[Rfam]
RNA sequence: UUGAAGCUCCAUCUACAAAUGGAUAAGACUUUGGUCUUAGUGUAUACGAGUCGUUGAAGUUGAAGGAACAAUAUCCAAUUUCUUGUUCUAUCAAGAGGUUGGUAUUGUUCCUUU
Numbered sequence: 001u002u003g004a005a006g007c008u009c010c011a012u013c014u015a016c017a018a019a020u021g022g023a024u025a026a027g028a029c030u031u032u033g034g035u036c037u038u039a040g041u042g043u044a045u046a047c048g049a050g051u052c053g054u055u056g057a058a059g060u061u062g063a064a065g066g067a068a069c070a071a072u073a074u075c076c077a078a079u080u081u082c083u084u085g086u087u088c089u090a091u092c093a094a095g096a097g098g099u100u101g102g103u104a105u106u107g108u109u110c111c112u113u114u
Stems, first nucleotide, its partner, number of pairs: 008023005062114013076101003080097005
This 114-nucleotide RNA from Nelumbo nucifera belongs to the Rfam family "Plastid-psbA-1 3UTR RNA". It scores 122 bits against the family's covariance model. Rfam describes the family as follows. Plastid psbA-1 is a non-coding RNA (ncRNA) present in plastids. It was identified in inverted repeat sequences in the 3 prime untranslate region (3UTR) of photosystem II quinone-binding protein (psbA). Its Rfam clan is "Plastid-psbA 3UTR RNA clan".